[Rfam]
RNA sequence: AGGGUUCCGGUUCACGCCGCUCCAGCAGGACGGCGACCCGGCGGCC
Numbered sequence: 001a002g003g004g005u006u007c008c009g010g011u012u013c014a015c016g017c018c019g020c021u022c023c024a025g026c027a028g029g030a031c032g033g034c035g036a037c038c039c040g041g042c043g044g045c046c
Stems, first nucleotide, its partner, number of pairs: 003046003007041004015035005021030003
This 46-nucleotide RNA sequence from Actinoplanes utahensis belongs to the Rfam family "L31-Actinobacteria ribosomal protein leader". Clan: Ribosomal Protein L31 Leader clan. The family's consensus secondary structure is taken from published work.